[Rfam]
RNA sequence: GGUGGGGAGGGGAGUCCCUCAGCCCGGAUUGCGAGAGGGUGCAAGCCAGACUGAGGGACCCCACCAGUGCACG
Numbered sequence: 001g002g003u004g005g006g007g008a009g010g011g012g013a014g015u016c017c018c019u020c021a022g023c024c025c026g027g028a029u030u031g032c033g034a035g036a037g038g039g040u041g042c043a044a045g046c047c048a049g050a051c052u053g054a055g056g057g058a059c060c061c062c063a064c065c066a067g068u069g070c071a072c073g
Stems, first nucleotide, its partner, number of pairs: 001070001006065002011062002014059009024049001026047002029044005
RNA: mir-9193 microRNA precursor family